[Rfam]
Shown here is a 177-nucleotide sequence from gamma proteobacterium HdN1, a member of the family "Manganese Mn2+ riboswitch aptamer (yybP-ykoY)". The match comes from Rfam's covariance-model search (107 bits). The family has 29 seed sequences and 1,126 matches in Rfam 15.1. About the family: This RNA was originally discovered in E. coli during a large scale screen and was named SraF. The family was later found to exist upstream of related families of protein genes in many bacteria, including the the yybP and ykoK genes in B. subtilis.

RNA sequence: UCGCUGGUCAUUGGGGAGUAGCCGAUCUUCGCACUGAAGAUGCUUACGUCAACACACUUGGCCCACAGGCCAUGGCGUAAGCGGUUCACACGCUUGGCAAGACCUUUGACCACAACGCCUCCGUAUUAAGGCUGGGGAUGCGUCGUGGUCAAUUGUGUCUAAUCCAGCCUGAGAAUC
Numbered sequence: 001u002c003g004c005u006g007g008u009c010a011u012u013g014g015g016g017a018g019u020a021g022c023c024g025a026u027c028u029u030c031g032c033a034c035u036g037a038a039g040a041u042g043c044u045u046a047c048g049u050c051a052a053c054a055c056a057c058u059u060g061g062c063c064c065a066c067a068g069g070c071c072a073u074g075g076c077g078u079a080a081g082c083g084g085u086u087c088a089c090a091c092g093c094u095u096g097g098c099a100a101g102a103c104c105u106u107u108g109a110c111c112a113c114a115a116c117g118c119c120u121c122c123g124u125a126u127u128a129a130g131g132c133u134g135g136g137g138a139u140g141c142g143u144c145g146u147g148g149u150c151a152a153u154u155g156u157g158u159c160u161a162a163u164c165c166a167g168c169c170u171g172a173g174a175a176u177c
Base pairs, nucleotide, nucleotide: 026040027039028038042082043081044080045079046078047077048076049075050074051073059072060071061070062069063068083177084176085175086174087173089171